This 103-nucleotide sequence from Streptococcus sanguinis belongs to the Rfam family "azaaromatic riboswitch aptamer (yjdF RNA)". The organism belongs to Streptococcus sanguinis, within Bacteria. It is one of the family's seed sequences.

[Rfam]
RNA sequence: AGCUACUAAGAUAAAAACACAGUUCUGGUUGGUAGUCCAGACGCAAAAAACCAUUUUUUGUCAGUAACCUUCCUCCUUGGUUGUCCAUUCUUAGGGAUUUUUA
Numbered sequence: 001a002g003c004u005a006c007u008a009a010g011a012u013a014a015a016a017a018c019a020c021a022g023u024u025c026u027g028g029u030u031g032g033u034a035g036u037c038c039a040g041a042c043g044c045a046a047a048a049a050a051c052c053a054u055u056u057u058u059u060g061u062c063a064g065u066a067a068c069c070u071u072c073c074u075c076c077u078u079g080g081u082u083g084u085c086c087a088u089u090c091u092u093a094g095g096g097a098u099u100u101u102u103a
Stems, first nucleotide, its partner, number of pairs: 004096001006094006022042002025040004043061008072080002